[Rfam]
RNA sequence: GUUGAAGUUCCAUCUACAAAUGGCUAAGACAUUUUGUCCUAGUGUAUAGGGGUUGUUAAAGGAAUAAUACCAAACCUCUUCAUUAGAGGUUUGGUAUUACUCCUUU
Number, nucleotide and partner (000 for none) at each position: 001g000002u000003u000004g000005a000006a000007g000008u000009u000010c023011c022012a021013u020014c000015u000016a000017c000018a000019a000020a013021u012022g011023g010024c000025u000026a000027a000028g000029a000030c000031a000032u000033u000034u000035u000036g000037u000038c000039c000040u000041a000042g000043u000044g000045u000046a000047u000048a000049g000050g000051g000052g000053u000054u000055g000056u000057u000058a000059a105060a104061g103062g102063a101064a000065u099066a098067a097068u096069a095070c094071c000072a092073a091074a090075c000076c088077u087078c086079u085080u000081c000082a000083u000084u000085a079086g078087a077088g076089g000090u074091u073092u072093g000094g070095u069096a068097u067098u066099a065100c000101u063102c062103c061104u060105u059106u000